A member of the RNA family "Mammalian CPEB3 ribozyme" from Alligator sinensis, 77 nucleotides long. The organism belongs to Alligator, within Eukaryota. A search with the family's covariance model found it, with a score of 44 bits.
RNA sequence: AGUCACAAGUUUGAGGCCAUAGCAGAAGUGUUCAAAGUACAGCCCUGUCAGAUUCCAACACACCUGCAAAUUCUGCU
Numbered sequence: 001a002g003u004c005a006c007a008a009g010u011u012u013g014a015g016g017c018c019a020u021a022g023c024a025g026a027a028g029u030g031u032u033c034a035a036a037g038u039a040c041a042g043c044c045c046u047g048u049c050a051g052a053u054u055c056c057a058a059c060a061c062a063c064c065u066g067c068a069a070a071u072u073c074u075g076c077u
Stems, first nucleotide, its partner, number of pairs: 013045001015044003021077007028040003049066003053062001